[Rfam]
RNA: Selenocysteine insertion sequence 1
Organism: Climacteris rufus
Nucleotides: 060
Stems, first nucleotide, its partner, number of pairs: 001060005014045009028034002
Number, partner (000 for none) and nucleotide at each position: 001060u002059g003058u004057u005056u006000g007000u008000a009000a010000u011000g012000a013000u014045g015044g016043u017042c018041a019040c020039a021038g022037c023000a024000u025000a026000a027000a028034g029033c030000a031000c032000u033029g034028c035000c036000g037022g038021c039020u040019g041018u042017g043016a044015c045014c046000u047000g048000a049000u050000u051000c052000u053000a054000g055000a056005a057004a058003a059002u060001a